[Rfam]
RNA sequence: UUGGCAGAUGACGACAAGCAAGACAGGGACUCUGCAGCGCCCCCGAUUUCAUAUCGCGGGUCGCGAAUGAUGCAUCCGUCUAUGGGAAAUCUCCGAUGCUAU
Numbered sequence: 001u002u003g004g005c006a007g008a009u010g011a012c013g014a015c016a017a018g019c020a021a022g023a024c025a026g027g028g029a030c031u032c033u034g035c036a037g038c039g040c041c042c043c044c045g046a047u048u049u050c051a052u053a054u055c056g057c058g059g060g061u062c063g064c065g066a067a068u069g070a071u072g073c074a075u076c077c078g079u080c081u082a083u084g085g086g087a088a089a090u091c092u093c094c095g096a097u098g099c100u101a102u
Stems, first nucleotide, its partner, number of pairs: 002101005
Dot-bracket structure: .(((((..........................................................................................))))).
The record is a 102-nucleotide RNA sequence from Triticum aestivum, which matches "Small nucleolar RNA R44/J54/Z268 family" in Rfam. It scores 53 bits against the family's covariance model. NCBI's taxonomy places the organism under Eukaryota, Viridiplantae, Embryophyta, Euphyllophyta, Triticum. The base pairs follow the family's consensus structure, which was predicted with PFOLD. Rfam 15.1 lists 1,168 matches to the family in 228 species. The family is grouped with related families in Rfam's "SNORD74 clan".